Rfam assigns this 99-nucleotide sequence to the family "Purine riboswitch aptamer". The base pairs follow the family's consensus structure, which is taken from published work.
RNA sequence: AGGAAAAACAAAUAAAUCCCACAUAUAUGCUAGAGGAUUGGCUCUAGUGUCUCUACCCGGCACCGUAAAUGCUGGACUAUGCGGGAAAGCACUUUUGGC
Numbered sequence: 001a002g003g004a005a006a007a008a009c010a011a012a013u014a015a016a017u018c019c020c021a022c023a024u025a026u027a028u029g030c031u032a033g034a035g036g037a038u039u040g041g042c043u044c045u046a047g048u049g050u051c052u053c054u055a056c057c058c059g060g061c062a063c064c065g066u067a068a069a070u071g072c073u074g075g076a077c078u079a080u081g082c083g084g085g086a087a088a089g090c091a092c093u094u095u096u097g098g099c
Base pairs, nucleotide, nucleotide: 018085019084020083022081023080024079025078029048030047031046032045033044034043035042057075058074059073060072061071062070